[Rfam]
The family of this 293-nucleotide RNA from Azomonas macrocytogenes is "anti ponA RNA". A search with the family's covariance model found it, with a score of 139 bits. It is annotated as an antisense RNA. About the family: Transcribed antisense to the penicillin-binding protein 1A gene called ponA. It was identified by RNAseq and the expression was validated by 5' and 3' RACE experiments. On this family, see Wurtzel et al., PLoS Pathog 2012: "The single-nucleotide resolution transcriptome of Pseudomonas aeruginosa grown in body temperature".

RNA sequence: GAAGUUGUCAUCCUCGGCUGCCAGCAAGGCAUUGAUGAAAUCUUGCGGAAUUUGGCUAAAGCGUAUGGGCGAGCGGCGCAUUUCGCCGAAUUCGGCGAUCAGUUUCUCGUCCUUGCUGUAGACCCGCAGCGGAAUCUGAAGCUGGAUGCUCCGCAAUGCUUCGACGGAAGGCUGACCAGGGCUCAGGUAAAGGUAUGUUCCGCCCAGACCUACCAGCAACGCGGAAAAAGCGGCGACGAGGGACCAUAGGAAGAACUUCAGAACAGGCAUCGGGUACUUGGAAUUCCGGUGGG
Numbered sequence: 001g002a003a004g005u006u007g008u009c010a011u012c013c014u015c016g017g018c019u020g021c022c023a024g025c026a027a028g029g030c031a032u033u034g035a036u037g038a039a040a041u042c043u044u045g046c047g048g049a050a051u052u053u054g055g056c057u058a059a060a061g062c063g064u065a066u067g068g069g070c071g072a073g074c075g076g077c078g079c080a081u082u083u084c085g086c087c088g089a090a091u092u093c094g095g096c097g098a099u100c101a102g103u104u105u106c107u108c109g110u111c112c113u114u115g116c117u118g119u120a121g122a123c124c125c126g127c128a129g130c131g132g133a134a135u136c137u138g139a140a141g142c143u144g145g146a147u148g149c150u151c152c153g154c155a156a157u158g159c160u161u162c163g164a165c166g167g168a169a170g171g172c173u174g175a176c177c178a179g180g181g182c183u184c185a186g187g188u189a190a191a192g193g194u195a196u197g198u199u200c201c202g203c204c205c206a207g208a209c210c211u212a213c214c215a216g217c218a219a220c221g222c223g224g225a226a227a228a229a230g231c232g233g234c235g236a237c238g239a240g241g242g243a244c245c246a247u248a249g250g251a252a253g254a255a256c257u258u259c260a261g262a263a264c265a266g267g268c269a270u271c272g273g274g275u276a277c278u279u280g281g282a283a284u285u286c287c288g289g290u291g292g293g
Base pairs, nucleotide, nucleotide: 011171012170014168015167017165019163020162024046025045026044027043028042029041047084048083049082050081051080055077057075061070062069086095087094088093101160102159103158105155107153108148109147110146111145112144115142116141117140119138120137121136122135124132125131126130176289177288179286180285181284183282184281186278187277197268200267201266202264203261206258207257214238217235222232223231244253
NCBI's taxonomy places the organism under Bacteria, Pseudomonadota, Gammaproteobacteria, Pseudomonadaceae, Azomonas.